Shown here is a 372-nucleotide sequence from Afipia carboxidovorans, a member of the family "Alphaproteobacteria transfer-messenger RNA". It scores 305 bits against the family's covariance model. The family's RNA type in Rfam is non-coding RNA gene.
RNA sequence: GGCCUUUUUUCGUCAAUCAUUGCCCCCUAUAUUGGGAAUGCCGGUUCGCCGGCUAUGGAAAUAAAUGGCCGUCGCAAUAAACCAUUCGGACCCGGGGGCAGCACCCGGCGCCUCCACCAAAGCCUGAAUUCACUUUGAAUUCACCUGCAAGGCAGGCUUCGGCGGGGGCGAAACAGGAUCGACGAGGGCGUAAAGGGCGUGUUUUUUCCCGGUAUUGUUCCGCCGUUAUCGGGCUCUACAAUAGUUGCAAACGACAACUAUGCUCCGGUUGCUCAGGCUGCGUAACGCAGUUUGAAAUACCGAAUUAAAGUCCUGAUGGAUUAAGCCCCGUCAGGCGGGGUCCGGAGGCACCUGGCAACAGAAGCCUCCACU
Numbered sequence: 001g002g003c004c005u006u007u008u009u010u011c012g013u014c015a016a017u018c019a020u021u022g023c024c025c026c027c028u029a030u031a032u033u034g035g036g037a038a039u040g041c042c043g044g045u046u047c048g049c050c051g052g053c054u055a056u057g058g059a060a061a062u063a064a065a066u067g068g069c070c071g072u073c074g075c076a077a078u079a080a081a082c083c084a085u086u087c088g089g090a091c092c093c094g095g096g097g098g099c100a101g102c103a104c105c106c107g108g109c110g111c112c113u114c115c116a117c118c119a120a121a122g123c124c125u126g127a128a129u130u131c132a133c134u135u136u137g138a139a140u141u142c143a144c145c146u147g148c149a150a151g152g153c154a155g156g157c158u159u160c161g162g163c164g165g166g167g168g169c170g171a172a173a174c175a176g177g178a179u180c181g182a183c184g185a186g187g188g189c190g191u192a193a194a195g196g197g198c199g200u201g202u203u204u205u206u207u208c209c210c211g212g213u214a215u216u217g218u219u220c221c222g223c224c225g226u227u228a229u230c231g232g233g234c235u236c237u238a239c240a241a242u243a244g245u246u247g248c249a250a251a252c253g254a255c256a257a258c259u260a261u262g263c264u265c266c267g268g269u270u271g272c273u274c275a276g277g278c279u280g281c282g283u284a285a286c287g288c289a290g291u292u293u294g295a296a297a298u299a300c301c302g303a304a305u306u307a308a309a310g311u312c313c314u315g316a317u318g319g320a321u322u323a324a325g326c327c328c329c330g331u332c333a334g335g336c337g338g339g340g341u342c343c344g345g346a347g348g349c350a351c352c353u354g355g356c357a358a359c360a361g362a363a364g365c366c367u368c369c370a371c372u
Stems, first nucleotide, its partner, number of pairs: 040053005057209005067202001070199004082188002086185003092108005109170007210225004217234001219233003338353004344369006